[Rfam]
RNA sequence: UCUAUAACUAGUCAUUCGACUCAUAUAAUAAUGUGGAAAUGGCCCAAAAGUUUCUACCAAACUACCGUAAAUAGUUUAACUAUGAGGAUGAUGGUGUUUCCU
Numbered sequence: 001u002c003u004a005u006a007a008c009u010a011g012u013c014a015u016u017c018g019a020c021u022c023a024u025a026u027a028a029u030a031a032u033g034u035g036g037a038a039a040u041g042g043c044c045c046a047a048a049a050g051u052u053u054c055u056a057c058c059a060a061a062c063u064a065c066c067g068u069a070a071a072u073a074g075u076u077u078a079a080c081u082a083u084g085a086g087g088a089u090g091a092u093g094g095u096g097u098u099u100c101c102u
Stems, first nucleotide, its partner, number of pairs: 020086006029049001032046002035043001059077006